[Rfam]
RNA: bZIP non canonical Hac1/Xbp1 intron
Organism: Dinoponera quadriceps
RNA sequence: ACUGCGUUGUACCCUCACUGGGAUCUGCAGUAUCCCCCAAUGACCCUCUGCCGCAGGGUGGGACAACGCAGU
Numbered sequence: 001a002c003u004g005c006g007u008u009g010u011a012c013c014c015u016c017a018c019u020g021g022g023a024u025c026u027g028c029a030g031u032a033u034c035c036c037c038c039a040a041u042g043a044c045c046c047u048c049u050g051c052c053g054c055a056g057g058g059u060g061g062g063a064c065a066a067c068g069c070a071g072u
Base pairs, nucleotide, nucleotide: 001072002071003070004069005068006067009064010063012061013060020036021035022034023033024032043059044058045057046056047055